[Rfam]
RNA sequence: CUGGGAAUAGACUGGGAGAUCUUCUGCUCUAUCUCAACAUCAGCUACUAGGCACAGAGCGCCGAAGUAUGUAGCUGGUGGUGAGGAAAAACA
Numbered sequence: 001c002u003g004g005g006a007a008u009a010g011a012c013u014g015g016g017a018g019a020u021c022u023u024c025u026g027c028u029c030u031a032u033c034u035c036a037a038c039a040u041c042a043g044c045u046a047c048u049a050g051g052c053a054c055a056g057a058g059c060g061c062c063g064a065a066g067u068a069u070g071u072a073g074c075u076g077g078u079g080g081u082g083a084g085g086a087a088a089a090a091c092a
Base pairs, nucleotide, nucleotide: 001015002014003013004012035082036081038079039078040077041076042075044073045072046071050062051061052060

The record is a 92-nucleotide RNA sequence from Orthoflavivirus japonicum, which matches "Flavivirus 3' UTR cis-acting replication element (CRE)" in Rfam. The family's RNA type in Rfam is cis-regulatory element. Rfam describes the family as follows. This family represents the Flavivirus 3'-SL cis-acting replication element (CRE). The family is thought to play a crucial role in replication and is thought to be needed for the formation of a 'replication complex'. Although evidence has been presented for an existence of a pseudoknot structure in this RNA, it does not appear to be well conserved across flaviviruses. Rfam's curators put it in the seed alignment. The organism belongs to Orthoflavivirus japonicum, within Viruses. The base pairs follow the family's consensus structure, which is taken from published work.